[Rfam]
RNA sequence: CACUAGCCAAGCAUACACGAGUUGCAAGCGUUGGAAGUUAAAGCCUCGUUA
Numbered sequence: 001c002a003c004u005a006g007c008c009a010a011g012c013a014u015a016c017a018c019g020a021g022u023u024g025c026a027a028g029c030g031u032u033g034g035a036a037g038u039u040a041a042a043g044c045c046u047c048g049u050u051a
Stems, first nucleotide, its partner, number of pairs: 007034002010032001011029002017049005
Background: A member of the RNA family "Exoribonuclease-resistant RNA (xrRNA) plant-infecting virus (class 3)" from Polerovirus CABYV, 51 nucleotides long. Lineage of the source: Viruses > Riboviria > Solemoviridae > Polerovirus > Polerovirus CABYV. For this family Rfam cites "The pseudoknot structure of a viral RNA reveals a conserved mechanism for programmed exoribonuclease resistance" (Gezelle et al., bioRxiv [Preprint], 2024). About the family: Exoribonuclease-resistant RNA (xrRNA) plant-infecting virus (class 3) is a ncRNA that was reported in Plant viruses. The base pairs follow the family's consensus structure, which is taken from published work.